[Rfam]
RNA sequence: GGUUGUAAUUCCGGCAAGCUGGAGGCGUUCUGGACGGGGGUUCGAUUCCCCCCAUCUCCACCAAAAGCGCAUUGAUACAGUGCUUUUUUGAUGGGGAUGUCCCGGUUUCGACAGGGCGGGCGAAGGUAAGCAGGCAACUCGACAGGCGACGGACGUAAUCCGCGCAAAUCCUAUAAAUGCCAACGAUGAGCAUUUCGCUAUCGCCGCCUAA
Numbered sequence: 001g002g003u004u005g006u007a008a009u010u011c012c013g014g015c016a017a018g019c020u021g022g023a024g025g026c027g028u029u030c031u032g033g034a035c036g037g038g039g040g041u042u043c044g045a046u047u048c049c050c051c052c053c054a055u056c057u058c059c060a061c062c063a064a065a066a067g068c069g070c071a072u073u074g075a076u077a078c079a080g081u082g083c084u085u086u087u088u089u090g091a092u093g094g095g096g097a098u099g100u101c102c103c104g105g106u107u108u109c110g111a112c113a114g115g116g117c118g119g120g121c122g123a124a125g126g127u128a129a130g131c132a133g134g135c136a137a138c139u140c141g142a143c144a145g146g147c148g149a150c151g152g153a154c155g156u157a158a159u160c161c162g163c164g165c166a167a168a169u170c171c172u173a174u175a176a177a178u179g180c181c182a183a184c185g186a187u188g189a190g191c192a193u194u195u196c197g198c199u200a201u202c203g204c205c206g207c208c209u210a211a
Stems, first nucleotide, its partner, number of pairs: 001139005016127001026118003030114003036052005053099007140155002143152001
Dot-bracket structure: (((((..........(.........(((.(((...(((((.......)))))(((((((.................................)))))))............))).)))........).......)))))((.(........).))........................................................